Shown here is a 33-nucleotide RNA, a member of the family "DUF805b RNA". By type it is a cis-regulatory element. Rfam's curators put it in the seed alignment.
RNA sequence: UAAGCGGAAGCCGAAAAGCUCAAAGAGUAGGUA
Numbered sequence: 001u002a003a004g005c006g007g008a009a010g011c012c013g014a015a016a017a018g019c020u021c022a023a024a025g026a027g028u029a030g031g032u033a
Stems, first nucleotide, its partner, number of pairs: 003020003010032003